[Rfam]
RNA sequence: GUUGAAUAUGCGCUGAAUUUUCCAGUUAGGAAAAACGGGGGAACCAACCUGACCGUUAUGGUCGACGGGGUGAAUCGGUACCGGUUAAGUCAAUCCGGCCCGUAGGGCUUCCACAGUCCGAAUCCGCCAGCUAACCUCGUAAGCUACAGUGGGAUAAUGA
Numbered sequence: 001g002u003u004g005a006a007u008a009u010g011c012g013c014u015g016a017a018u019u020u021u022c023c024a025g026u027u028a029g030g031a032a033a034a035a036c037g038g039g040g041g042a043a044c045c046a047a048c049c050u051g052a053c054c055g056u057u058a059u060g061g062u063c064g065a066c067g068g069g070g071u072g073a074a075u076c077g078g079u080a081c082c083g084g085u086u087a088a089g090u091c092a093a094u095c096c097g098g099c100c101c102g103u104a105g106g107g108c109u110u111c112c113a114c115a116g117u118c119c120g121a122a123u124c125c126g127c128c129a130g131c132u133a134a135c136c137u138c139g140u141a142a143g144c145u146a147c148a149g150u151g152g153g154a155u156a157a158u159g160a
Stems, first nucleotide, its partner, number of pairs: 012144003018034006035140006045067001068125003076102003105119004
RNA: c-di-AMP riboswitch aptamer (ydaO/yuaA leader)